Notes
Shown here is an 85-nucleotide RNA sequence from Bacillus sp. HNG, a member of the family "c-di-GMP-I riboswitch aptamer". The source organism's lineage runs through Bacteria, Bacilli, Caryophanales, Bacillaceae and Bacillus. Pairs were carried over by alignment from the consensus structure, which is taken from published work.
RNA sequence: CAUCGAUAAAGGCAAACUUAUCAAAAGAUAGGGACGCAAAGCCACGAGCCUAACGCAAUCAUGCUAUGGUAGUCGGGUUACCGAA
Numbered sequence: 001c002a003u004c005g006a007u008a009a010a011g012g013c014a015a016a017c018u019u020a021u022c023a024a025a026a027g028a029u030a031g032g033g034a035c036g037c038a039a040a041g042c043c044a045c046g047a048g049c050c051u052a053a054c055g056c057a058a059u060c061a062u063g064c065u066a067u068g069g070u071a072g073u074c075g076g077g078u079u080a081c082c083g084a085a
Base pairs, nucleotide, nucleotide: 012037013036017032018031019030020029021028022027040079041078042077043076045075046074047073048070049069050068055064056063057062
A reference for the family is Sudarsan et al. (2008), "Riboswitches in Eubacteria Sense the Second Messenger Cyclic Di-GMP", Science.